[Rfam]
RNA sequence: CAUCUUCUGCGGUACACGUUAGCGGCUAAGAUCUCCUUGAGCCUAAUAAUUGUCCAGGGGAUCGGCUUGCCGGGCCAGUGAGCAUGUCCACUGCGGUGGAAAGCCUUAGGUUCUGCACUCAUCCCCACCUGAACCUCUGGUUCAAGGGCAAUAGCUGCAACGGUAUUCGCGGAAGAUGC
Dot-bracket structure: .((((((((((((((.(((..............(((.((((((.............((((...(......((((.(.....((...(((((....)))))..)).....).))))..)...).)))............)))))).)))...........))))))).))))))))))..